[Rfam]
RNA sequence: GAGUGAGAUGAUGAUGGAAAUUGUUUUCCCUAUUGGUUUGAUUGCCGAUAUGAUGGCGAAAAUGUAUUAGCUCUAUCUGAUCUCUC
Numbered sequence: 001g002a003g004u005g006a007g008a009u010g011a012u013g014a015u016g017g018a019a020a021u022u023g024u025u026u027u028c029c030c031u032a033u034u035g036g037u038u039u040g041a042u043u044g045c046c047g048a049u050a051u052g053a054u055g056g057c058g059a060a061a062a063u064g065u066a067u068u069a070g071c072u073c074u075a076u077c078u079g080a081u082c083u084c085u086c
Stems, first nucleotide, its partner, number of pairs: 002085002005082001043058004

The record is an 86-nucleotide RNA from Lactuca sativa, which matches "Small nucleolar RNA Z102/R77" in Rfam.
Lineage of the source: Eukaryota > Streptophytina > asterids > Cichorieae > Lactuca.
Clan: SNORD44 clan.
On this family, see Barneche et al., J Mol Biol 2001: "Identification of 66 box C/D snoRNAs in Arabidopsis thaliana: extensive gene duplications generated multiple isoforms predicting new ribosomal RNA 2'-O-methylation sites".
It is annotated as a C/D-box small nucleolar RNA.